This 105-nucleotide RNA sequence from Domibacillus mangrovi belongs to the Rfam family "SAM riboswitch aptamer (S box leader)". Rfam links the family to the GO term regulation of gene expression. The SAM riboswitch is found upstream of a number of genes which code for proteins involved in methionine or cysteine biosynthesis in Gram-positive bacteria.

RNA sequence: CUCUUAUCAAGAGAGGCUGAGGGAUGUGCCCGAUGAAGCCCGGCAACCAUCUUUUUUAGAAAAGGUGCCAAAUCACGCAAAGCAAUGUGCUUUGAGAGAUGAGAG
Numbered sequence: 001c002u003c004u005u006a007u008c009a010a011g012a013g014a015g016g017c018u019g020a021g022g023g024a025u026g027u028g029c030c031c032g033a034u035g036a037a038g039c040c041c042g043g044c045a046a047c048c049a050u051c052u053u054u055u056u057u058a059g060a061a062a063a064g065g066u067g068c069c070a071a072a073u074c075a076c077g078c079a080a081a082g083c084a085a086u087g088u089g090c091u092u093u094g095a096g097a098g099a100u101g102a103g104a105g
Stems, first nucleotide, its partner, number of pairs: 001105008013041001015040003021031003025077004042069004047065002050060003073097001078094006
Description:
The match comes from Rfam's covariance-model search (95 bits). The base pairs follow the family's consensus structure, which is taken from published work.